[Rfam]
A member of the RNA family "Small nucleolar RNA snoR8a" from Theobroma cacao, 93 nucleotides long. Gene Ontology terms of the family: RNA processing and nucleolus. By type it is a C/D-box small nucleolar RNA. Taxonomically the source falls in Theobroma (Eukaryota, rosids, Malvales, Malvaceae). The family has 7 seed sequences and 956 matches in Rfam 15.1. Pairs were carried over by alignment from the consensus structure, which was predicted with WAR. For this family Rfam cites "Multiple snoRNA gene clusters from Arabidopsis" (Brown et al., RNA, 2001).
RNA sequence: GAGUUAGUGAUGAUUAUAAAAAUAAUUUCUUGUUUUGAUUUACUUACUUUGAGCAUGACAAACCUCUUAUUACAUCCAUAGAACUUGAGCUAC
Dot-bracket structure: ..((.((..................................................................................))))